[Rfam]
RNA sequence: AUACUUACCUGGCAGGGGAGAUACCAUGAUCACGAAGGUGGUUUUCCCAAGGCAAGCUUAUCCAUUGCACUCUGGAUGUGCUGACCCCUGCGACCCAAAUGUGGGAAACUCAACUGCAUAAUUUGUGGUAGCAGGAGAUUGUGUUUACACUUUCCCCUU
Numbered sequence: 001a002u003a004c005u006u007a008c009c010u011g012g013c014a015g016g017g018g019a020g021a022u023a024c025c026a027u028g029a030u031c032a033c034g035a036a037g038g039u040g041g042u043u044u045u046c047c048c049a050a051g052g053c054a055a056g057c058u059u060a061u062c063c064a065u066u067g068c069a070c071u072c073u074g075g076a077u078g079u080g081c082u083g084a085c086c087c088c089u090g091c092g093a094c095c096c097a098a099a100u101g102u103g104g105g106a107a108a109c110u111c112a113a114c115u116g117c118a119u120a121a122u123u124u125g126u127g128g129u130a131g132c133a134g135g136a137g138a139u140u141g142u143g144u145u146u147a148c149a150c151u152u153u154c155c156c157c158u159u
Base pairs, nucleotide, nucleotide: 012117013116014115015114016048017047018046019045020044021043023042024041025040026039027038049089051087052086055082056081057080059078060077061076062075063074092111093110095104096103133158134157135156137154138153141150142149143148
Dot-bracket structure: ...........((((((((((.(((((..........)))))))))))(.((..(((.(((((..........))))).)))...)).)..((.((......)).....))..))))...............(((.((..(((....)))..)).))).